[Rfam]
Rfam assigns this 126-nucleotide RNA from Pseudofrankia asymbiotica to the family "Group II catalytic intron D1-D4-4". The source organism's lineage runs through Bacteria, Bacillati, Actinomycetota, Actinomycetes and Pseudofrankia. The match comes from Rfam's covariance-model search (59 bits). Its family is annotated with Group II intron splicing in the Gene Ontology. Rfam describes the family as follows. Group II introns are found in rRNA, tRNA and mRNA of organelles in fungi, plants and protists, and also in mRNA in bacteria. For this family Rfam cites "The ins and outs of group II introns" (Bonen and Vogel, Trends Genet, 2001). The pairing is the family consensus, mapped onto this sequence.
RNA sequence: UCGCUGGCGUAAGCUCGUCCUCGCUUGCCGGUAGCAGGCUGGCGGCUCGGUUGGGUAACUCGCCGGGUCGGAGCCCAGAGUCGAAAGCCCUUGUAAGGGGGAGCGACUGGACGGCCCGUAGCAUGA
Number, nucleotide and partner (000 for none) at each position: 001u000002c000003g000004c031005u030006g029007g028008c027009g000010u000011a000012a000013g000014c000015u000016c000017g000018u000019c000020c000021u000022c000023g000024c000025u000026u000027g008028c007029c006030g005031g004032u000033a000034g000035c000036a000037g000038g000039c078040u077041g076042g075043c070044g069045g068046c067047u066048c065049g000050g000051u000052u000053g000054g059055g000056u000057a000058a000059c054060u000061c000062g000063c000064c000065g048066g047067g046068u045069c044070g043071g000072a000073g000074c000075c042076c041077a040078g039079a000080g000081u000082c000083g000084a000085a000086a000087g000088c100089c099090c098091u097092u000093g000094u000095a000096a000097g091098g090099g089100g088101g000102a000103g119104c118105g117106a000107c000108u000109g000110g000111a000112c000113g000114g000115c000116c000117c105118g104119u103120a000121g000122c000123a000124u000125g000126a000